RNA sequence: GCUUGGCUGAAUACUGUGUUCUUUUUCUCAGUAGUUUACACAGCCAGACAUCAUACAAAAGUAAAGUCUUCCCUUUAAAGUGGCUAUGAUGGUACGCAAAGUGUCUUCAUAGCAUAUCAUUACUUUAAAAAAAAAGAU
Numbered sequence: 001g002c003u004u005g006g007c008u009g010a011a012u013a014c015u016g017u018g019u020u021c022u023u024u025u026u027c028u029c030a031g032u033a034g035u036u037u038a039c040a041c042a043g044c045c046a047g048a049c050a051u052c053a054u055a056c057a058a059a060a061g062u063a064a065a066g067u068c069u070u071c072c073c074u075u076u077a078a079a080g081u082g083g084c085u086a087u088g089a090u091g092g093u094a095c096g097c098a099a100a101g102u103g104u105c106u107u108c109a110u111a112g113c114a115u116a117u118c119a120u121u122a123c124u125u126u127a128a129a130a131a132a133a134a135a136g137a138u
Stems, first nucleotide, its partner, number of pairs: 001056001004053003014043006069135002074129005087122008096113002099110001
RNA: Small nucleolar RNA SNORA15
Organism: Phyllostomus discolor